RNA sequence: AAACCCGUCCCGGGAGAACGCCGCACCGCGGCUGCCGUAGGAGCAAACCCUCUCGGAACCUCUCAGGCACCACAACCGGGACGGCUGG
Numbered sequence: 001a002a003a004c005c006c007g008u009c010c011c012g013g014g015a016g017a018a019c020g021c022c023g024c025a026c027c028g029c030g031g032c033u034g035c036c037g038u039a040g041g042a043g044c045a046a047a048c049c050c051u052c053u054c055g056g057a058a059c060c061u062c063u064c065a066g067g068c069a070c071c072a073c074a075a076c077c078g079g080g081a082c083g084g085c086u087g088g
Stems, first nucleotide, its partner, number of pairs: 006083008020032004034068003037064001041062003048055001
RNA: Glycine riboswitch aptamer